[Rfam]
RNA sequence: CUCGGGCAGCGCGACUGGCGAGGGUGGUGAACCACCGGGGAGCGCUGAUGGCUGGAGCAUCGCCCGCCUGGGUGCUUCUC
Numbered sequence: 001c002u003c004g005g006g007c008a009g010c011g012c013g014a015c016u017g018g019c020g021a022g023g024g025u026g027g028u029g030a031a032c033c034a035c036c037g038g039g040g041a042g043c044g045c046u047g048a049u050g051g052c053u054g055g056a057g058c059a060u061c062g063c064c065c066g067c068c069u070g071g072g073u074g075c076u077u078c079u080c
Base pairs, nucleotide, nucleotide: 003051005049007047008046009045010044011043012042015039016038017068018067019066020065024035025034026033027032057075058074059073060072061071
Record summary
The family of this 80-nucleotide RNA from Salinispora arenicola is "ZMP/ZTP riboswitch aptamer (pfl RNA motif)". Gene Ontology terms of the family: one-carbon metabolic process and regulation of purine nucleotide biosynthetic process.